[Rfam]
RNA sequence: AAUUUAUAAAGAACGAAGUGAGAGAACAGGCUCUAUGACCUUCUGGCAACCCCUCACAAGAGAAAGGUGCCAAUUCCUGACCUAAAAAUCAUUUUGGGAAAUAUAAAUU
Numbered sequence: 001a002a003u004u005u006a007u008a009a010a011g012a013a014c015g016a017a018g019u020g021a022g023a024g025a026a027c028a029g030g031c032u033c034u035a036u037g038a039c040c041u042u043c044u045g046g047c048a049a050c051c052c053c054u055c056a057c058a059a060g061a062g063a064a065a066g067g068u069g070c071c072a073a074u075u076c077c078u079g080a081c082c083u084a085a086a087a088a089u090c091a092u093u094u095u096g097g098g099a100a101a102u103a104u105a106a107a108u109u
Stems, first nucleotide, its partner, number of pairs: 001109008013044001015043004022033003027079004045071004050067002053062003075101001081098006
RNA: SAM riboswitch aptamer (S box leader)
Organism: Thermoflexibacter ruber